[Rfam]
RNA: Small nucleolar RNA SNORA28
RNA sequence: AAGCGGCACUCUGUGGCAGAUGAUCAGAACUGUCUGACGCAACGUGAACUUGCUACUGCAGCAGAGUCUAACCUAUUCUGGCGCUCUCUCUCCUCCGUGAGACAAGACGUUGUACAAACUUAGACAGU
Numbered sequence: 001a002a003g004c005g006g007c008a009c010u011c012u013g014u015g016g017c018a019g020a021u022g023a024u025c026a027g028a029a030c031u032g033u034c035u036g037a038c039g040c041a042a043c044g045u046g047a048a049c050u051u052g053c054u055a056c057u058g059c060a061g062c063a064g065a066g067u068c069u070a071a072c073c074u075a076u077u078c079u080g081g082c083g084c085u086c087u088c089u090c091u092c093c094u095c096c097g098u099g100a101g102a103c104a105a106g107a108c109g110u111u112g113u114a115c116a117a118a119c120u121u122a123g124a125c126a127g128u
Base pairs, nucleotide, nucleotide: 010047011046012041013040014039015038017036018035019034020033021032022031064121065120066119067118069116074114075113076112079109080108082106087102088101089100090099